[Rfam]
RNA sequence: AAAAGAGGCCGCAACUGGCGAGGGUGGAGGACCACCGGGAAGCGGCUGAAGCAGCCUCGCACGGCGCCGCCCGCCUGGGCGCUGAGG
Numbered sequence: 001a002a003a004a005g006a007g008g009c010c011g012c013a014a015c016u017g018g019c020g021a022g023g024g025u026g027g028a029g030g031a032c033c034a035c036c037g038g039g040a041a042g043c044g045g046c047u048g049a050a051g052c053a054g055c056c057u058c059g060c061a062c063g064g065c066g067c068c069g070c071c072c073g074c075c076u077g078g079g080c081g082c083u084g085a086g087g
Stems, first nucleotide, its partner, number of pairs: 007047006015039002017075004024035004064082005
Dot-bracket structure: ......((((((..(([[[[...((((....))))..))..))))))................(((((...]]]]..))))).....
RNA: ZMP/ZTP riboswitch aptamer (pfl RNA motif)
Organism: Actinomyces sp. HMSC065F12